[Rfam]
A member of the RNA family "mir-8834 microRNA precursor family" from Nyctereutes procyonoides, 105 nucleotides long. A search with the family's covariance model found it, with a score of 81 bits. Its family is annotated with RISC complex and miRNA-mediated post-transcriptional gene silencing in the Gene Ontology. Pairs were carried over by alignment from the consensus structure, which was predicted with RNAalifold. Rfam 15.1 lists 13,926 matches to the family in 17 species.

RNA sequence: AGGAGGAACAGCCACAGUGGUUAUGGCAGCUCUGGAGGCCUGGAUUCAGCUCCCGCAGGAACUCUGGGGCUCUCUGUCUGCAGGGCCUGGAUGCUCCGGGGCGGG
Numbered sequence: 001a002g003g004a005g006g007a008a009c010a011g012c013c014a015c016a017g018u019g020g021u022u023a024u025g026g027c028a029g030c031u032c033u034g035g036a037g038g039c040c041u042g043g044a045u046u047c048a049g050c051u052c053c054c055g056c057a058g059g060a061a062c063u064c065u066g067g068g069g070c071u072c073u074c075u076g077u078c079u080g081c082a083g084g085g086c087c088u089g090g091a092u093g094c095u096c097c098g099g100g101g102c103g104g105g
Base pairs, nucleotide, nucleotide: 002097003096004095005094007092009089010088011087012085013084019078020077021076025072028071029070030069031068032067033066034065035064036063039059040058041057042056